[Rfam]
RNA sequence: UGAAGAAACAUCAUUGAGUGCAGCGUUGAUGAAAUUCUAAAUAGCAGCUAAGUUGUGUCUUGCUACAUGAUAUUUGAUAUCAAAUAUUGCAUGCUUGAUUUCAUCGACGCUACACUCAAUCAUGUUUUUU
Numbered sequence: 001u002g003a004a005g006a007a008a009c010a011u012c013a014u015u016g017a018g019u020g021c022a023g024c025g026u027u028g029a030u031g032a033a034a035u036u037c038u039a040a041a042u043a044g045c046a047g048c049u050a051a052g053u054u055g056u057g058u059c060u061u062g063c064u065a066c067a068u069g070a071u072a073u074u075u076g077a078u079a080u081c082a083a084a085u086a087u088u089g090c091a092u093g094c095u096u097g098a099u100u101u102c103a104u105c106g107a108c109g110c111u112a113c114a115c116u117c118a119a120u121c122a123u124g125u126u127u128u129u130u
Base pairs, nucleotide, nucleotide: 006127007126008125009124010123011122013120014119015118016117017116018115019114020113022111023110024109025108026107027106028105030103031102032101033100034099035098036097
The family of this 130-nucleotide RNA sequence from Trifolium pratense is "MIR397 microRNA precursor family".
A search with the family's covariance model found it, with a score of 79 bits.
For this family Rfam cites "High throughput approaches reveal splicing of primary microRNA transcripts and tissue specific expression of mature microRNAs in Vitis vinifera" (Mica et al., BMC Genomics, 2009).
Taxonomically the source falls in Trifolium (Eukaryota, Streptophyta, Streptophytina, Spermatophyta).